[Rfam]
RNA sequence: CAGCGUGGUCUGGGUUGGACCUCCGCUGGUUCUCUCCGCGGUGAUAUUCUGAAACAAGUGGUUAUCACCGGGUGAAAACUGGUAGAGGUCCGAUCCAGUCAG
Dot-bracket structure: ...............(((((((..(((((((.((.((.(.((((((................)))))).))).)).)))))))..)))))))..........
RNA: mir-36 microRNA precursor family